[Rfam]
RNA sequence: AUGGAUGUGAUGAUUAUUUCCCCAGGUGAUCGACGCUGAACAUACUGUGCGAUCUUUCUCUUUAGAGAAACCAAGCCAAUAAAUCUGAUCCGU
Numbered sequence: 001a002u003g004g005a006u007g008u009g010a011u012g013a014u015u016a017u018u019u020c021c022c023c024a025g026g027u028g029a030u031c032g033a034c035g036c037u038g039a040a041c042a043u044a045c046u047g048u049g050c051g052a053u054c055u056u057u058c059u060c061u062u063u064a065g066a067g068a069a070a071c072c073a074a075g076c077c078a079a080u081a082a083a084u085c086u087g088a089u090c091c092g093u
Base pairs, nucleotide, nucleotide: 001093002092003091004090005089

Shown here is a 93-nucleotide sequence from Vigna angularis, a member of the family "Small nucleolar RNA Z103". Rfam classes the family as a C/D-box small nucleolar RNA. A search with the family's covariance model found it, with a score of 91 bits. Rfam links the family to the GO terms RNA processing and nucleolus.